[Rfam]
RNA sequence: UGUUUGAAUAUGAGAAUUGGAUGGGAGCAAACCCUUCUCCAUUUUAUGGUAAACAGAGGGUUUGGUUUCCUCCAAUAUCUCAUCUUCAACAA
Numbered sequence: 001u002g003u004u005u006g007a008a009u010a011u012g013a014g015a016a017u018u019g020g021a022u023g024g025g026a027g028c029a030a031a032c033c034c035u036u037c038u039c040c041a042u043u044u045u046a047u048g049g050u051a052a053a054c055a056g057a058g059g060g061u062u063u064g065g066u067u068u069c070c071u072c073c074a075a076u077a078u079c080u081c082a083u084c085u086u087c088a089a090c091a092a
Stems, first nucleotide, its partner, number of pairs: 004089005011082004016076006023069004028064003032060002
A member of the RNA family "MIR2275 microRNA precursor family" from Aquilegia coerulea, 92 nucleotides long.